[Rfam]
RNA sequence: AAGCAAUAGAUUUGAUGCUCUCAAGGGUGGUCGGCACAUCCCCAAGUGAGAGGGGGUGAGGCUGUUGACAGUUUUUCAAGCAUGCAUGUUUGCGAUUUCCUUUGCAAGCUUAAUCAUUGCUGUCCUGUCAUUUAACAAUAAAAAAUAAUCCACCCUUGAGUUUGGACGCUCGAGUGGAUUACUUUCCCAAAGAGUGCCGACCCUAGAUGGGAGUCGACUAUUGCUUGACCGCUUCGAUGCGUGAACAUCGGAG
Numbered sequence: 001a002a003g004c005a006a007u008a009g010a011u012u013u014g015a016u017g018c019u020c021u022c023a024a025g026g027g028u029g030g031u032c033g034g035c036a037c038a039u040c041c042c043c044a045a046g047u048g049a050g051a052g053g054g055g056g057u058g059a060g061g062c063u064g065u066u067g068a069c070a071g072u073u074u075u076u077c078a079a080g081c082a083u084g085c086a087u088g089u090u091u092g093c094g095a096u097u098u099c100c101u102u103u104g105c106a107a108g109c110u111u112a113a114u115c116a117u118u119g120c121u122g123u124c125c126u127g128u129c130a131u132u133u134a135a136c137a138a139u140a141a142a143a144a145a146u147a148a149u150c151c152a153c154c155c156u157u158g159a160g161u162u163u164g165g166a167c168g169c170u171c172g173a174g175u176g177g178a179u180u181a182c183u184u185u186c187c188c189a190a191a192g193a194g195u196g197c198c199g200a201c202c203c204u205a206g207a208u209g210g211g212a213g214u215c216g217a218c219u220a221u222u223g224c225u226u227g228a229c230c231g232c233u234u235c236g237a238u239g240c241g242u243g244a245a246c247a248u249c250g251g252a253g
Base pairs, nucleotide, nucleotide: 001226002225003224004223005222007220008219009218011216013199014198016196017195018194020160021159022158023157024156025155026154027153029150030149031148037058038057040056041055042054043053067129068128069127070126071125081094104120105119106118200214201213202211232253233252234251235250236249237248238247239246
RNA: BsrG
Organism: Bacillus sp. FJAT-50079